The record is a 322-nucleotide RNA sequence from Gorilla gorilla, which matches "Nuclear RNase P" in Rfam. A search with the family's covariance model found it, with a score of 124 bits.
RNA sequence: AGAGUGAAACUCAUUAGAGAGUCAUGGGGCCAUGAGCUGAGUGCGUCAUGUCACUCCAGCCCCAUGUCCCUUGGGAAGAUCAGAGACUAGGGUCAGAAGCAGGCUUAACAAGGCUCUCUUUGAGUUGCAAGGAGGUGAAUUCCCAGAAAACAGAGCUGCUUGAGGUCAGACGGGGCAGGAGAUGCUGUAGACCCCACCCCUGGGGAGGAAUUCAGGGGAAGUCUCCUAAGUGAGAGCUUGGAACGGAUUCAGUGGAAUGAGCUCAACAGCUAAGGUUAGGUACCCCACAUGGGGUCCUCAUAACUGCUGUCCUCCAACCUCU
Numbered sequence: 001a002g003a004g005u006g007a008a009a010c011u012c013a014u015u016a017g018a019g020a021g022u023c024a025u026g027g028g029g030c031c032a033u034g035a036g037c038u039g040a041g042u043g044c045g046u047c048a049u050g051u052c053a054c055u056c057c058a059g060c061c062c063c064a065u066g067u068c069c070c071u072u073g074g075g076a077a078g079a080u081c082a083g084a085g086a087c088u089a090g091g092g093u094c095a096g097a098a099g100c101a102g103g104c105u106u107a108a109c110a111a112g113g114c115u116c117u118c119u120u121u122g123a124g125u126u127g128c129a130a131g132g133a134g135g136u137g138a139a140u141u142c143c144c145a146g147a148a149a150a151c152a153g154a155g156c157u158g159c160u161u162g163a164g165g166u167c168a169g170a171c172g173g174g175g176c177a178g179g180a181g182a183u184g185c186u187g188u189a190g191a192c193c194c195c196a197c198c199c200c201u202g203g204g205g206a207g208g209a210a211u212u213c214a215g216g217g218g219a220a221g222u223c224u225c226c227u228a229a230g231u232g233a234g235a236g237c238u239u240g241g242a243a244c245g246g247a248u249u250c251a252g253u254g255g256a257a258u259g260a261g262c263u264c265a266a267c268a269g270c271u272a273a274g275g276u277u278a279g280g281u282a283c284c285c286c287a288c289a290u291g292g293g294g295u296c297c298u299c300a301u302a303a304c305u306g307c308u309g310u311c312c313u314c315c316a317a318c319c320u321c322u
Base pairs, nucleotide, nucleotide: 001322002321003320004319006314007313010274011273013271015269026071027070028069029068039056040055041054042053043052044050081309082308083307085305101115102114104112105111116134117133118132119131120130121129137250138249139248140247141246155237156236157235275301276300278298279297280296
Pairs were carried over by alignment from the consensus structure, which is taken from published work.